Rfam assigns this 86-nucleotide RNA sequence from Puma concolor to the family "mir-544 microRNA precursor family". Lineage of the source: Eukaryota > Euteleostomi > Amniota > Laurasiatheria > Puma. For this family Rfam cites "Mammalian microRNAs: experimental evaluation of novel and previously annotated genes" (Chiang et al., Genes Dev, 2010). Its family is annotated with RISC complex and miRNA-mediated post-transcriptional gene silencing in the Gene Ontology. The base pairs follow the family's consensus structure, which was predicted with RNAalifold.
RNA sequence: CUCAUCAGGGGAUCUUGUGAAAAUGCAGGCUCUAAUUCAGCUGGCCUUAGAGUCUGCAUUUCUAACAAGUUCCCAGAUGACACUGA
Number, nucleotide and partner (000 for none) at each position: 001c000002u000003c079004a078005u077006c000007a000008g000009g073010g072011g071012a000013u000014c069015u068016u067017g066018u065019g000020a063021a061022a060023a059024u000025g057026c056027a055028g054029g053030c000031u051032c050033u049034a000035a000036u000037u000038c000039a000040g000041c000042u000043g000044g000045c000046c000047u000048u000049a033050g032051a031052g000053u029054c028055u027056g026057c025058a000059u023060u022061u021062c000063u020064a000065a018066c017067a016068a015069g014070u000071u011072c010073c009074c000075a000076g000077a005078u004079g003080a000081c000082a000083c000084u000085g000086a000